[Rfam]
RNA sequence: AGCUUUGUGCAGUGGCAGUAUCACAGCCAAUGAGGUUUAUCCAAGGCGUGAUUACUGCUAAUUGUAAAUAGCGCUGCAAUGAACAUUGGGGUGCAUGUAUCUUUUUGAGUUAGAGUUUUCUCU
Numbered sequence: 001a002g003c004u005u006u007g008u009g010c011a012g013u014g015g016c017a018g019u020a021u022c023a024c025a026g027c028c029a030a031u032g033a034g035g036u037u038u039a040u041c042c043a044a045g046g047c048g049u050g051a052u053u054a055c056u057g058c059u060a061a062u063u064g065u066a067a068a069u070a071g072c073g074c075u076g077c078a079a080u081g082a083a084c085a086u087u088g089g090g091g092u093g094c095a096u097g098u099a100u101c102u103u104u105u106u107g108a109g110u111u112a113g114a115g116u117u118u119u120c121u122c123u
Stems, first nucleotide, its partner, number of pairs: 020052005026047003034042002075099003079096003112123004